Plastid-psbA-3 3UTR RNA: a 57-nucleotide RNA from Morina alba. About the family: Plastid psbA-3 is a non-coding RNA (ncRNA) present in plastids. On this family, see Richter et al., Plant Commun 2023: "Retrograde signaling in plants: A critical review focusing on the GUN pathway and beyond". Clan: Plastid-psbA 3UTR RNA clan. It is one of the family's seed sequences.
[Rfam]
RNA sequence: AAAGGAGCAAUAGCGCCCUCUUGCUAGAACAAGAAAGGGAUUAUUGCUCCUUUGUUU
Numbered sequence: 001a002a003a004g005g006a007g008c009a010a011u012a013g014c015g016c017c018c019u020c021u022u023g024c025u026a027g028a029a030c031a032a033g034a035a036a037g038g039g040a041u042u043a044u045u046g047c048u049c050c051u052u053u054g055u056u057u
Base pairs, nucleotide, nucleotide: 001053002052003051004050005049006048007047008046009045010044011043012042013041019034020033021032022031023030